[Rfam]
RNA sequence: UAACCGUCACAACGGCUUCCUGACGUGGCGGGGGUAUAAUCAAUGGAGCA
Numbered sequence: 001u002a003a004c005c006g007u008c009a010c011a012a013c014g015g016c017u018u019c020c021u022g023a024c025g026u027g028g029c030g031g032g033g034g035u036a037u038a039a040u041c042a043a044u045g046g047a048g049c050a
Base pairs, nucleotide, nucleotide: 004031005030006029007028008027009026010025013022014021015049016048017047019046020045

The record is a 50-nucleotide RNA from Actibacterium atlanticum, which matches "SAM/SAH riboswitch aptamer" in Rfam. Rfam links the family to the GO terms S-adenosylmethionine metabolic process and regulation of gene expression. The match comes from Rfam's covariance-model search (62 bits). Taxonomically the source falls in Actibacterium (Bacteria, Pseudomonadota, Alphaproteobacteria, Roseobacteraceae). The base pairs follow the family's consensus structure, which is taken from published work.